Shown here is a 79-nucleotide RNA sequence from Eggerthia catenaformis, a member of the family "ZMP/ZTP riboswitch aptamer (pfl RNA motif)". Gene Ontology terms of the family: one-carbon metabolic process and regulation of purine nucleotide biosynthetic process. The organism belongs to Eggerthia catenaformis, within Bacteria.
RNA sequence: UGUCAGUUAUACAACUGACGGAAGUGGAAUUAACCACAUGGAAGUAUAAUGUUAUGAGUCGACCGUCUGGGCAGCCCCU
Number, nucleotide and partner (000 for none) at each position: 001u000002g000003u000004c051005a000006g050007u049008u048009a047010u046011a045012c044013a000014a000015c041016u040017g067018a066019c065020g064021g063022a000023a000024g037025u036026g035027g034028a000029a000030u000031u000032a000033a000034c027035c026036a025037c024038a000039u000040g016041g015042a000043a000044g012045u011046a010047u009048a008049a007050u006051g004052u000053u000054a000055u000056g000057a000058g072059u071060c070061g000062a000063c021064c020065g019066u018067c017068u000069g000070g060071g059072c058073a000074g000075c000076c000077c000078c000079u000